Overview: Shown here is an 81-nucleotide RNA from Pseudomonas extremaustralis, a member of the family "Proteo-phage-1 RNA".
RNA sequence: CCACAGCCAGGGUGGGCCUUCGGGCAGGGCCUGGACGCGGUAUAGCCGGAAGUCACGCGUUACGGUAGAACACCGGCAGUC
Numbered sequence: 001c002c003a004c005a006g007c008c009a010g011g012g013u014g015g016g017c018c019u020u021c022g023g024g025c026a027g028g029g030c031c032u033g034g035a036c037g038c039g040g041u042a043u044a045g046c047c048g049g050a051a052g053u054c055a056c057g058c059g060u061u062a063c064g065g066u067a068g069a070a071c072a073c074c075g076g077c078a079g080u081c
Stems, first nucleotide, its partner, number of pairs: 001015004007034005016025003036059004041055001045077005